Rfam assigns this 133-nucleotide RNA from Phyllostomus discolor to the family "Small nucleolar RNA SNORA31".
From the family's description: ACA31 (SNORA31) belongs to the H/ACA class of snoRNAs which are thought to guide the sites of modification of uridines to pseudouridines.
The family's RNA type in Rfam is H/ACA-box small nucleolar RNA.
The literature on the family includes a 2001 paper in EMBO J by Huttenhofer et al., "RNomics: an experimental approach that identifies 201 candidates for novel, small, non-messenger RNAs in mouse".
Taxonomically the source falls in Phyllostomus (Eukaryota, Sarcopterygii, Amniota, Eutheria).
A search with the family's covariance model found it, with a score of 61 bits.
Gene Ontology terms of the family: RNA processing and nucleolus.
Pairs were carried over by alignment from the consensus structure, which was predicted with RNAalifold.
RNA sequence: AUGCAUCUAUUUGACAGACCUGGGGCAGUCACUGUCUGCUGCUGAGGUUCCAGUGCAGAUGCAACAGAAAAGGGUCCUCGCGCUUUCUGACUGCCUGAUUGUGGCAGCCAAGAUUGAAUAGGGGAAUACAAAA
Numbered sequence: 001a002u003g004c005a006u007c008u009a010u011u012u013g014a015c016a017g018a019c020c021u022g023g024g025g026c027a028g029u030c031a032c033u034g035u036c037u038g039c040u041g042c043u044g045a046g047g048u049u050c051c052a053g054u055g056c057a058g059a060u061g062c063a064a065c066a067g068a069a070a071a072g073g074g075u076c077c078u079c080g081c082g083c084u085u086u087c088u089g090a091c092u093g094c095c096u097g098a099u100u101g102u103g104g105c106a107g108c109c110a111a112g113a114u115u116g117a118a119u120a121g122g123g124g125a126a127u128a129c130a131a132a133a
Base pairs, nucleotide, nucleotide: 002063003062004061005060006059007058008057011053012052017049018048019047020046024040025039026038027037028036075125076124077123078122079121083116086113087112088111091107092106093105094104095103